[Rfam]
Shown here is a 105-nucleotide sequence from Psilocybe cyanescens, a member of the family "Small nucleolar RNA Z13/snr52". A search with the family's covariance model found it, with a score of 80 bits. Taxonomically the source falls in Psilocybe (Eukaryota, Fungi, Agaricomycotina, Agaricomycetes). Gene Ontology terms of the family: nucleolus and RNA processing. It is annotated as a C/D-box small nucleolar RNA.

RNA sequence: GUAAAAAACAUGAUGAAGCCAUUUACGGAUGUAAACCAUACAUAAAAAUCCGAGAGCGCAAAACCCCAUGUGGAUCUUUCCGUUGCCUUCCUUCUGACUCCUUAU
Numbered sequence: 001g002u003a004a005a006a007a008a009c010a011u012g013a014u015g016a017a018g019c020c021a022u023u024u025a026c027g028g029a030u031g032u033a034a035a036c037c038a039u040a041c042a043u044a045a046a047a048a049u050c051c052g053a054g055a056g057c058g059c060a061a062a063a064c065c066c067c068a069u070g071u072g073g074a075u076c077u078u079u080c081c082g083u084u085g086c087c088u089u090c091c092u093u094c095u096g097a098c099u100c101c102u103u104a105u
Base pairs, nucleotide, nucleotide: 004103005102026082027081028080029079